[Rfam]
RNA sequence: CAGCUUUCGAGGCUUGUUUUCAGUUGCCUGCGACUCUUAUUUGGACACAGGCAGCUAAAGCAAGUCUGGGAUGCAG
Numbered sequence: 001c002a003g004c005u006u007u008c009g010a011g012g013c014u015u016g017u018u019u020u021c022a023g024u025u026g027c028c029u030g031c032g033a034c035u036c037u038u039a040u041u042u043g044g045a046c047a048c049a050g051g052c053a054g055c056u057a058a059a060g061c062a063a064g065u066c067u068g069g070g071a072u073g074c075a076g
Stems, first nucleotide, its partner, number of pairs: 003074002006071003010067011022056009032046001
RNA: mir-1788 microRNA precursor family